[Rfam]
This 140-nucleotide sequence from Theobroma umbraticum belongs to the Rfam family "Small nucleolar RNA snoR111".
The literature on the family includes a 2002 paper in Curr Biol by Marker et al., "Experimental RNomics: identification of 140 candidates for small non-messenger RNAs in the plant Arabidopsis thaliana".
A search with the family's covariance model found it, with a score of 71 bits.
RNA sequence: GUUAACAGCGAGGAGGCAGUUUAUAUAAGAUUGUCUUCUUCAUGGGGAAGAACAUUGAGGUAUAUCAAAUUCAAAGGCCGAGAUAUCGUUUCAGACGUCAUAUUUUCUCCAUUGACGGUCUGGUUGUUGCUCGUCCACAC
Number, nucleotide and partner (000 for none) at each position: 001g000002u000003u000004a000005a000006c045007a000008g043009c000010g041011a040012g000013g037014a036015g035016g034017c033018a032019g031020u030021u029022u028023a000024u000025a000026u000027a000028a022029g021030a020031u019032u018033g017034u016035c015036u014037u013038c000039u000040u011041c010042a000043u008044g000045g006046g000047g000048a000049a000050g000051a000052a000053c000054a000055u000056u000057g000058a000059g000060g000061u000062a000063u000064a000065u000066c000067a000068a000069a000070u000071u000072c000073a000074a000075a000076g136077g135078c000079c133080g132081a131082g130083a000084u000085a124086u123087c122088g121089u000090u000091u000092c000093a000094g119095a000096c117097g116098u115099c114100a113101u000102a000103u000104u000105u000106u000107c000108u000109c000110c000111a000112u000113u100114g099115a098116c097117g096118g000119u094120c000121u088122g087123g086124u085125u000126g000127u000128u000129g000130c082131u081132c080133g079134u000135c077136c076137a000138c000139a000140c000